[Rfam]
RNA sequence: AAUAAUAUGAACGGAUGCCUUCAUAUAAGUCCGAUAAUAUGGUUCGGAUGUUUCUACUAAGUUACCUUAAACAACUUAUCUAUGACGGCAGGUAGGCGUGUA
Numbered sequence: 001a002a003u004a005a006u007a008u009g010a011a012c013g014g015a016u017g018c019c020u021u022c023a024u025a026u027a028a029g030u031c032c033g034a035u036a037a038u039a040u041g042g043u044u045c046g047g048a049u050g051u052u053u054c055u056a057c058u059a060a061g062u063u064a065c066c067u068u069a070a071a072c073a074a075c076u077u078a079u080c081u082a083u084g085a086c087g088g089c090a091g092g093u094a095g096g097c098g099u100g101u102a
Stems, first nucleotide, its partner, number of pairs: 018088002021085005029049006058078006